[Rfam]
RNA sequence: GGAGAUGGACGGGCCCUGGUGGGCCCCACGGCCUUCAAAGCCGCUGUGAGGCGCGCAGAACGUCUCGGGUGCGUUCGAUUCGCACGCAUCUCC
Dot-bracket structure: ((((((((..((((((....))))))..((((.......))))...(((((...........)))))..((((.......))))).)))))))
RNA: Selenocysteine transfer RNA